[Rfam]
Nucleotides: 078
Base pairs, nucleotide, nucleotide: 005050007048008047009046010045011044012043015040016039017066018065019064020063021062024037025036026035027034055073057071058070059069
Number, partner (000 for none) and nucleotide at each position: 001000u002000a003000c004000a005050u006000a007048u008047c009046a010045u011044g012043u013000g014000a015040c016039u017066g018065a019064c020063g021062g022000a023000a024037g025036u026035g027034g028000a029000g030000u031000u032000a033000a034027c035026c036025a037024c038000g039016g040015g041000g042000a043012g044011c045010a046009u047008g048007a049000a050005g051000a052000a053000u054000a055073u056000a057071g058070c059069c060000g061000a062021c063020c064019g065018u066017c067000u068000g069059g070058g071057c072000g073055a074000u075000g076000u077000a078000u